RNA: mir-10 microRNA precursor family
Organism: Clunio marinus
RNA sequence: UUACAGAAACCCGUAGAUCCGAACUUGUGCUGAAUCUUAAAGAUUUUUUAUUUUGAAUUUUCGACGACAUCUGAUUGAAGACACAAGCACGAAUUUACGGGAAUCUGUCGA
Numbered sequence: 001u002u003a004c005a006g007a008a009a010c011c012c013g014u015a016g017a018u019c020c021g022a023a024c025u026u027g028u029g030c031u032g033a034a035u036c037u038u039a040a041a042g043a044u045u046u047u048u049u050a051u052u053u054u055g056a057a058u059u060u061u062c063g064a065c066g067a068c069a070u071c072u073g074a075u076u077g078a079a080g081a082c083a084c085a086a087g088c089a090c091g092a093a094u095u096u097a098c099g100g101g102a103a104u105c106u107g108u109c110g111a
Base pairs, nucleotide, nucleotide: 003108004107005106006105007104010101011100012099015096016095017094018093020091021090024087025086026085027084028083029082